RNA sequence: AUAAGCUAACAACAAGCAAAACAUUUUCAUUCUUCUCCCCCCUUUUAGAAUGAAGAUCCCAAACUCCCUUUUUGACCAGUGUGGUUUACUCCCUUUUUCCACACUGGUUUUUUA
Numbered sequence: 001a002u003a004a005g006c007u008a009a010c011a012a013c014a015a016g017c018a019a020a021a022c023a024u025u026u027u028c029a030u031u032c033u034u035c036u037c038c039c040c041c042c043u044u045u046u047a048g049a050a051u052g053a054a055g056a057u058c059c060c061a062a063a064c065u066c067c068c069u070u071u072u073u074g075a076c077c078a079g080u081g082u083g084g085u086u087u088a089c090u091c092c093c094u095u096u097u098u099c100c101a102c103a104c105u106g107g108u109u110u111u112u113u114a
Stems, first nucleotide, its partner, number of pairs: 023057010076107009